[Rfam]
RNA sequence: CUGGAGAUGUGAACUUGCUAAAUUACGUAAAUAAGGGAGUUAUAAAGUAGUUUAGUAUUGCUAUCUCUAGGACACUGUUGGCUAUUUAGUCUUAAUGAUCAAGAUGCAGUGGAGCAGCCCUCUAAAAAUCUAGGUCACCUCCCUAGCGAUAGUUAGGAUGAUCCACCUACGUCGCGAAAUACCGGAUCGCUACAAUUAAACAAGAUGAAA
Numbered sequence: 001c002u003g004g005a006g007a008u009g010u011g012a013a014c015u016u017g018c019u020a021a022a023u024u025a026c027g028u029a030a031a032u033a034a035g036g037g038a039g040u041u042a043u044a045a046a047g048u049a050g051u052u053u054a055g056u057a058u059u060g061c062u063a064u065c066u067c068u069a070g071g072a073c074a075c076u077g078u079u080g081g082c083u084a085u086u087u088a089g090u091c092u093u094a095a096u097g098a099u100c101a102a103g104a105u106g107c108a109g110u111g112g113a114g115c116a117g118c119c120c121u122c123u124a125a126a127a128a129u130c131u132a133g134g135u136c137a138c139c140u141c142c143c144u145a146g147c148g149a150u151a152g153u154u155a156g157g158a159u160g161a162u163c164c165a166c167c168u169a170c171g172u173c174g175c176g177a178a179a180u181a182c183c184g185g186a187u188c189g190c191u192a193c194a195a196u197u198a199a200a201c202a203a204g205a206u207g208a209a210a
Stems, first nucleotide, its partner, number of pairs: 001070009016057009026047001035144003039140001074110005080091004097136004102131004111123004148197003152193001154192003

Description:
Rfam assigns this 210-nucleotide RNA sequence from Hubei picorna-like virus 24 to the family "Cripavirus internal ribosome entry site (IRES)". It scores 113 bits against the family's covariance model. About the family: This family represents a Cripavirus internal ribosome entry site (IRES) which is required for the production of capsid proteins through IRES-mediated translation. NCBI's taxonomy places the organism under Viruses, Riboviria.